[Rfam]
RNA sequence: UAAGUAGCCCAGUAAAACGUUGUUGCGAUAGCUGGGAACUUUAGACAACUA
Numbered sequence: 001u002a003a004g005u006a007g008c009c010c011a012g013u014a015a016a017a018c019g020u021u022g023u024u025g026c027g028a029u030a031g032c033u034g035g036g037a038a039c040u041u042u043a044g045a046c047a048a049c050u051a
Stems, first nucleotide, its partner, number of pairs: 002040001008036002012033001013030002019049004
Dot-bracket structure: .[.....[[..[[[....((((......]]..].]]...].....))))..
This 51-nucleotide RNA from Polerovirus FBPV belongs to the Rfam family "Exoribonuclease-resistant RNA (xrRNA) plant-infecting virus (class 3)". Rfam describes the family as follows. Exoribonuclease-resistant RNA (xrRNA) plant-infecting virus (class 3) is a ncRNA that was reported in Plant viruses. Rfam's curators put it in the seed alignment.